[Rfam]
RNA sequence: CUGUGACCUGUGGGUUUCCCUUUGUCAUCCUAUGCCUGGAGAGAUCAAUAAGGCAGGGACAGCAAAGGAAGGCUCAGCCGUCACUUCA
Numbered sequence: 001c002u003g004u005g006a007c008c009u010g011u012g013g014g015u016u017u018c019c020c021u022u023u024g025u026c027a028u029c030c031u032a033u034g035c036c037u038g039g040a041g042a043g044a045u046c047a048a049u050a051a052g053g054c055a056g057g058g059a060c061a062g063c064a065a066a067g068g069a070a071g072g073c074u075c076a077g078c079c080g081u082c083a084c085u086u087c088a
Stems, first nucleotide, its partner, number of pairs: 017070001019068004024063002028059004034054004